Rfam assigns this 71-nucleotide RNA sequence from Acetobacterium woodii to the family "Fluoride riboswitch aptamer (crcB RNA motif)". The match comes from Rfam's covariance-model search (41 bits).

[Rfam]
RNA sequence: CUAUAUAAAGGGGAUGAAGUUCGCCUUGGCCAAUGCCAAAAUGCUGAUAAGCUGAUGACUUCUGCAAAUAG
Numbered sequence: 001c002u003a004u005a006u007a008a009a010g011g012g013g014a015u016g017a018a019g020u021u022c023g024c025c026u027u028g029g030c031c032a033a034u035g036c037c038a039a040a041a042u043g044c045u046g047a048u049a050a051g052c053u054g055a056u057g058a059c060u061u062c063u064g065c066a067a068a069u070a071g
Base pairs, nucleotide, nucleotide: 010025011024013022016062017061018060019059020058021057043052044051045050